Notes
Bacterial large subunit ribosomal RNA: a 233-nucleotide part of an RNA from Hymenobacter sp. 5317J-9. A search with the family's covariance model found it, with a score of 2728 bits. Rfam links the family to the GO terms structural constituent of ribosome and ribosome.

Nucleotides: 233
Stems, first nucleotide, its partner, number of pairs: 005090003009087010021046004027040003050057002060072004093231002096228001100221003104217002109197011120185001122154004129146006158182003164177003199209003
Number, partner (000 for none) and nucleotide at each position: 001000g002000a003000g004000u005090u006089a007088c008000u009087c010086c011085u012084c013083c014082c015081c016080g017079g018078c019000a020000a021046g022045g023044u024043u025000a026000a027040g028039g029038a030000c031000u032000u033000c034000a035000a036000g037000g038029u039028c040027c041000g042000g043024a044023g045022c046021c047000g048000c049000a050057g051056c052000g053000a054000a055000a056051g057050c058000g059000a060072g061071u062070c063069u064000g065000a066000a067000c068000a069063g070062g071061g072060c073000g074000c075000g076000c077000a078018g079017u080016c081015g082014g083013g084012g085011g086010g087009g088007g089006u090005a091000g092000a093231c094230g095000c096228g097000a098000a099000a100221c101220u102219u103000u104217g105216u106000g107000a108000g109197c110196u111195a112194c113193c114192c115191u116190u117189g118188a119187g120185c121000a122154g123153g124152u125151u126000g127000a128000a129146g130145g131144u132143g133142c134141c135000g136000u137000a138000a139000c140000a141134g142133g143132c144131a145130c146129u147000g148000g149000a150000g151125g152124a153123c154122c155000g156000a157000a158182c159181c160180a161000g162000u163000u164177u165176c166175c167000g168000u169000u170000g171000a172000a173000a174000a175166g176165g177164a178000u179000u180160u181159g182158g183000a184000u185120g186000a187119c188118u189117u190116g191115a192114g193113g194112g195111u196110a197109g198000g199209g200208g201207u202000g203000a204000a205000a206000g207201g208200c209199c210000a211000a212000u213000c214000a215000a216105a217104c218000u219102g220101a221100g222000a223000a224000a225000u226000a227000g228096c229000u230094c231093g232000u233000a